[Rfam]
RNA sequence: GAUCUUACAAUGUCCAGUAAAGUGUCGGUUAACUUUAACCGGACAUUGUAAGAACGG
Numbered sequence: 001g002a003u004c005u006u007a008c009a010a011u012g013u014c015c016a017g018u019a020a021a022g023u024g025u026c027g028g029u030u031a032a033c034u035u036u037a038a039c040c041g042g043a044c045a046u047u048g049u050a051a052g053a054a055c056g057g
Stems, first nucleotide, its partner, number of pairs: 001055001003053009013043003017039002020036003024033002
RNA: mir-3015 microRNA precursor family